Annotation:
The family of this 136-nucleotide RNA from Phytohabitans flavus is "c-di-AMP riboswitch aptamer (ydaO/yuaA leader)". The match comes from Rfam's covariance-model search (87 bits).
[Rfam]
RNA sequence: CGGCUCAGCCCGCCGAGUCGGACCAACGUACGAGCCGGGGACCCAAGCACCUCGGGGUGAAUCCGCGAAAGCGGUAGGGCGCGCUCUCCCGCCCGAACCCGUCAGCUAACCCGGUAGGCGGCCAAGGAGAAGGAGU
Numbered sequence: 001c002g003g004c005u006c007a008g009c010c011c012g013c014c015g016a017g018u019c020g021g022a023c024c025a026a027c028g029u030a031c032g033a034g035c036c037g038g039g040g041a042c043c044c045a046a047g048c049a050c051c052u053c054g055g056g057g058u059g060a061a062u063c064c065g066c067g068a069a070a071g072c073g074g075u076a077g078g079g080c081g082c083g084c085u086c087u088c089c090c091g092c093c094c095g096a097a098c099c100c101g102u103c104a105g106c107u108a109a110c111c112c113g114g115u116a117g118g119c120g121g122c123c124a125a126g127g128a129g130a131a132g133g134a135g136u
Stems, first nucleotide, its partner, number of pairs: 011120004018033003034115006044054001055100003063074004077094004
For this family Rfam cites "New RNA motifs suggest an expanded scope for riboswitches in bacterial genetic control" (Barrick et al., Proc Natl Acad Sci U S A, 2004).
This family represents a conserved RNA structure found upstream of the ydaO and yuaA genes in Bacillus subtilis and related genes in other bacteria. The ydaO/yuaA element is thought to act as a genetic 'off' switch for the ydaO and yuaA genes in its native state. It is believed that the element may be triggered during osmotic shock leading to activation of ydaO, a predicted amino acid transporter gene, and members of the yuaA-yubG operon which code for KtrA and KtrB K+ transporters.